[Rfam]
RNA sequence: AGAAAAGUAGGUGCCGCCCCGCACAGGGGCGACGCUAAUAGACCGACGUGAAAACAAGUUCAGCGAGAGACGCGGAUCACAGACAUAAAACCCACGCCCCUGGCGCUC
Numbered sequence: 001a002g003a004a005a006a007g008u009a010g011g012u013g014c015c016g017c018c019c020c021g022c023a024c025a026g027g028g029g030c031g032a033c034g035c036u037a038a039u040a041g042a043c044c045g046a047c048g049u050g051a052a053a054a055c056a057a058g059u060u061c062a063g064c065g066a067g068a069g070a071c072g073c074g075g076a077u078c079a080c081a082g083a084c085a086u087a088a089a090a091c092c093c094a095c096g097c098c099c100c101u102g103g104c105g106c107u108c
Base pairs, nucleotide, nucleotide: 012074013073014072015031016030017029018028019027020026059066060065095105096104097103

The family of this 108-nucleotide RNA sequence from Paraburkholderia phenazinium is "Burkholderia sRNA Bp1_Cand684_SIPHT". Lineage of the source: Bacteria > Pseudomonadota > Betaproteobacteria > Burkholderiales > Paraburkholderia. The family has 14 seed sequences and 176 matches in Rfam 15.1. The base pairs follow the family's consensus structure, which was predicted with RNAalifold.